[Rfam]
RNA sequence: GCCGGGGUGGUGGAAUUGGCAGACACACAGGACUUAAAAUCCUGCGGUAGGUGACUACCGUGCCGGUUCAAGUCCGGCCCUCGGCA
Numbered sequence: 001g002c003c004g005g006g007g008u009g010g011u012g013g014a015a016u017u018g019g020c021a022g023a024c025a026c027a028c029a030g031g032a033c034u035u036a037a038a039a040u041c042c043u044g045c046g047g048u049a050g051g052u053g054a055c056u057a058c059c060g061u062g063c064c065g066g067u068u069c070a071a072g073u074c075c076g077g078c079c080c081u082c083g084g085c086a
Base pairs, nucleotide, nucleotide: 001085002084003083004082005081006080007079010026011025012024028044029043030042031041032040062078063077064076065075066074